[Rfam]
Background
This 160-nucleotide RNA sequence from Dorea formicigenerans belongs to the Rfam family "Clostridiales-1 RNA". Pairs were carried over by alignment from the consensus structure, which is taken from published work.
RNA sequence: UAUAAAAGUAUUAUCAAUAGAUAGCUUGGAGGCAUGUUUACAUGCAUUACAGGCUAUCUAUUAGAUAAUCUGAGCUGCAUGAACAAGAAGGGCGAAAGCCCGGAUUGUGAAUGUGGCAGCAGAUGCGGGAGUGCAAAGCACGGAGCAUCUGGAUUUUAUA
Numbered sequence: 001u002a003u004a005a006a007a008g009u010a011u012u013a014u015c016a017a018u019a020g021a022u023a024g025c026u027u028g029g030a031g032g033c034a035u036g037u038u039u040a041c042a043u044g045c046a047u048u049a050c051a052g053g054c055u056a057u058c059u060a061u062u063a064g065a066u067a068a069u070c071u072g073a074g075c076u077g078c079a080u081g082a083a084c085a086a087g088a089a090g091g092g093c094g095a096a097a098g099c100c101c102g103g104a105u106u107g108u109g110a111a112u113g114u115g116g117c118a119g120c121a122g123a124u125g126c127g128g129g130a131g132u133g134c135a136a137a138g139c140a141c142g143g144a145g146c147a148u149c150u151g152g153a154u155u156u157u158a159u160a
Stems, first nucleotide, its partner, number of pairs: 001160006011068004017061012030048002032045005074117007083108004090101004120151007131141004